[Rfam]
RNA sequence: AGGUUAAGCUCUUAUUCUAAGCCCAUGUGGAAGUAAACCUUCUGCAAUAUAUCUUCAAAUUGACGGGAAAGCCCUAAGAGCAAUCUUAACUAACUUAAUAUAGAAAUAUAAUUAAGGGCGCAGGUAAUGACUCGCGAGAUAGUAAAAUCAAGAUUGAUUUACGAAAGUAAAAUGGGUGAUCCGCAUCCAAGCUUCACAUUAAAAGCGAAGAAGGUUCAUCGACUAGAUGGAGAUAGGCAUUCUAUAUAUAAGUUUAUUGACUGCUAAAUAGAUUGCUUAAGAUAUAGUCAAGCCCCAAUGGAAACAUUGCA
Numbered sequence: 001a002g003g004u005u006a007a008g009c010u011c012u013u014a015u016u017c018u019a020a021g022c023c024c025a026u027g028u029g030g031a032a033g034u035a036a037a038c039c040u041u042c043u044g045c046a047a048u049a050u051a052u053c054u055u056c057a058a059a060u061u062g063a064c065g066g067g068a069a070a071g072c073c074c075u076a077a078g079a080g081c082a083a084u085c086u087u088a089a090c091u092a093a094c095u096u097a098a099u100a101u102a103g104a105a106a107u108a109u110a111a112u113u114a115a116g117g118g119c120g121c122a123g124g125u126a127a128u129g130a131c132u133c134g135c136g137a138g139a140u141a142g143u144a145a146a147a148u149c150a151a152g153a154u155u156g157a158u159u160u161a162c163g164a165a166a167g168u169a170a171a172a173u174g175g176g177u178g179a180u181c182c183g184c185a186u187c188c189a190a191g192c193u194u195c196a197c198a199u200u201a202a203a204a205g206c207g208a209a210g211a212a213g214g215u216u217c218a219u220c221g222a223c224u225a226g227a228u229g230g231a232g233a234u235a236g237g238c239a240u241u242c243u244a245u246a247u248a249u250a251a252g253u254u255u256a257u258u259g260a261c262u263g264c265u266a267a268a269u270a271g272a273u274u275g276c277u278u279a280a281g282a283u284a285u286a287g288u289c290a291a292g293c294c295c296c297a298a299u300g301g302a303a304a305c306a307u308u309g310c311a
Stems, first nucleotide, its partner, number of pairs: 002023004007018001050235005056229002061185002064183004072176003187214001193208002199203001219290001221289005237276003241272005296309005
Dot-bracket structure: .((((.(..........).))))..........................(((((.((...((.((((....(((...................................................................................................)))...)))))).(.....((....(...)...)).....)....[.[[[[[..)).))))).(((.(((((......................))))).)))........]]]]]].....(((((....)))))..
Rfam assigns this 311-nucleotide sequence from Magnaporthiopsis poae to the family "Group I catalytic intron".
The family's consensus secondary structure is taken from published work.
Group I catalytic introns are large self-splicing ribozymes. They catalyse their own excision from mRNA, tRNA and rRNA precursors in a wide range of organisms. The core secondary structure consists of 9 paired regions (P1-P9). These fold to essentially two domains - the P4-P6 domain (formed from the stacking of P5, P4, P6 and P6a helices) and the P3-P9 domain (formed from the P8, P3, P7 and P9 helices). The secondary structure mark-up for this family represents only this conserved core. Group I catalytic introns often have long ORFs inserted in loop regions. The window size for this search is chosen to minimise search time and catch the small examples. A larger window size will find more matches.
Taxonomically the source falls in Magnaporthiopsis poae (Eukaryota, Opisthokonta, Ascomycota, Magnaporthiopsis).